[Rfam]
RNA sequence: UACGGCGGCAGCGAUGUCGCAGGAUGGGCUGGGAGAAGUCAGCAGAGGCCAUAGUAGUCCGGGCGACCGGACGAAGGGC
Numbered sequence: 001u002a003c004g005g006c007g008g009c010a011g012c013g014a015u016g017u018c019g020c021a022g023g024a025u026g027g028g029c030u031g032g033g034a035g036a037a038g039u040c041a042g043c044a045g046a047g048g049c050c051a052u053a054g055u056a057g058u059c060c061g062g063g064c065g066a067c068c069g070g071a072c073g074a075a076g077g078g079c
Base pairs, nucleotide, nucleotide: 003022005020006019007018008017009016010015039046040045048079049078050077057072058071059070060069061068062067